The record is a 60-nucleotide RNA sequence, which matches "L17-Actino-Proteobacteria ribosomal protein leader" in Rfam. On this family, see Eckert and Weinberg, BMC Microbiol 2020: "Discovery of 20 novel ribosomal leader candidates in bacteria and archaea".
RNA sequence: CCACGCGGCAGCGGUCGCGUGGGAUCUGACUGCGGUGCUGCAUCCGUUUGGCCGCAGCAG
Numbered sequence: 001c002c003a004c005g006c007g008g009c010a011g012c013g014g015u016c017g018c019g020u021g022g023g024a025u026c027u028g029a030c031u032g033c034g035g036u037g038c039u040g041c042a043u044c045c046g047u048u049u050g051g052c053c054g055c056a057g058c059a060g
Stems, first nucleotide, its partner, number of pairs: 001022009026060003030057007